[Rfam]
RNA: tRNA
Organism: Amycolatopsis sp. SID8362
RNA sequence: GUCCCGGUAGCUCAGCAGGACAGAGCGCGGCGCUACGAACGCCGAGGUCCGAGGUUCGACUCCUCGCCGGGACA
Numbered sequence: 001g002u003c004c005c006g007g008u009a010g011c012u013c014a015g016c017a018g019g020a021c022a023g024a025g026c027g028c029g030g031c032g033c034u035a036c037g038a039a040c041g042c043c044g045a046g047g048u049c050c051g052a053g054g055u056u057c058g059a060c061u062c063c064u065c066g067c068c069g070g071g072a073c074a
Stems, first nucleotide, its partner, number of pairs: 001073007010026004028044005050066005